[Rfam]
RNA sequence: CCUUAGUCUCUCUGUAAGUCACUUUGGAUAAAAGUGUCUGCUAAAUGACAAUAA
Numbered sequence: 001c002c003u004u005a006g007u008c009u010c011u012c013u014g015u016a017a018g019u020c021a022c023u024u025u026g027g028a029u030a031a032a033a034g035u036g037u038c039u040g041c042u043a044a045a046u047g048a049c050a051a052u053a054a
Stems, first nucleotide, its partner, number of pairs: 013043001014041003020036006